[Rfam]
RNA sequence: CCCCCAUGAGGAAACUUCCCAUGUCUGAACCCCCUGGUGGGCCCAGAACCUGCUAAGGUGGAACCCACUGGUGCCCUCAGGGGGGACAGGAGGACAGCAGGUCCUGAGGGGACAGUCUGAGGGGG
Numbered sequence: 001c002c003c004c005c006a007u008g009a010g011g012a013a014a015c016u017u018c019c020c021a022u023g024u025c026u027g028a029a030c031c032c033c034c035u036g037g038u039g040g041g042c043c044c045a046g047a048a049c050c051u052g053c054u055a056a057g058g059u060g061g062a063a064c065c066c067a068c069u070g071g072u073g074c075c076c077u078c079a080g081g082g083g084g085g086a087c088a089g090g091a092g093g094a095c096a097g098c099a100g101g102u103c104c105u106g107a108g109g110g111g112a113c114a115g116u117c118u119g120a121g122g123g124g125g
Base pairs, nucleotide, nucleotide: 001124002123003122004121